This 102-nucleotide RNA sequence from Scyliorhinus torazame belongs to the Rfam family "mir-454 microRNA precursor family". A search with the family's covariance model found it, with a score of 99 bits. Pairs were carried over by alignment from the consensus structure, which was predicted with RNAalifold. Rfam 15.1 lists 696 matches to the family in 601 species. The literature on the family includes a 2008 paper in Genome Res by Murchison et al., "Conservation of small RNA pathways in platypus". Its family is annotated with RISC complex and miRNA-mediated post-transcriptional gene silencing in the Gene Ontology.
RNA sequence: CUUUUGAUGCUCAGGUACUGGGACCCUAUCGAUAUUGCCUCUGCUUUGUAGAUAGCUGUGAGUAGUGCAAUAUUGCUUAUAGGGUUUCAGUGUUUGGGAAUU
Dot-bracket structure: ...................(((((((((((((((((((..(((((...............))))).)))))))))...))))))))))..............